Manganese Mn2+ riboswitch aptamer (yybP-ykoY): a 175-nucleotide RNA from Uliginosibacterium sp. TH139. It scores 75 bits against the family's covariance model. Its family is annotated with manganese ion binding in the Gene Ontology. The organism belongs to Uliginosibacterium, within Bacteria.
[Rfam]
RNA sequence: CGCCCCGUCAUCGGGGAGUAGCCACCCGCAGCAAGCGGGCCCAGCGUCAACAGACUUGGUCGCAAGACCAUGGCGCUGGGAGCCAAGCCAGGUUCGGCGAGACCUUUGACUGUUGCGGUGUCGAUGCAGGUCGACGGGUCGCGGCAGUCAUUGUGUUCGUCCGUCGGCCUGCCUC
Numbered sequence: 001c002g003c004c005c006c007g008u009c010a011u012c013g014g015g016g017a018g019u020a021g022c023c024a025c026c027c028g029c030a031g032c033a034a035g036c037g038g039g040c041c042c043a044g045c046g047u048c049a050a051c052a053g054a055c056u057u058g059g060u061c062g063c064a065a066g067a068c069c070a071u072g073g074c075g076c077u078g079g080g081a082g083c084c085a086a087g088c089c090a091g092g093u094u095c096g097g098c099g100a101g102a103c104c105u106u107u108g109a110c111u112g113u114u115g116c117g118g119u120g121u122c123g124a125u126g127c128a129g130g131u132c133g134a135c136g137g138g139u140c141g142c143g144g145c146a147g148u149c150a151u152u153g154u155g156u157u158c159g160u161c162c163g164u165c166g167g168c169c170u171g172c173c174u175c
Stems, first nucleotide, its partner, number of pairs: 026038003040080010057070005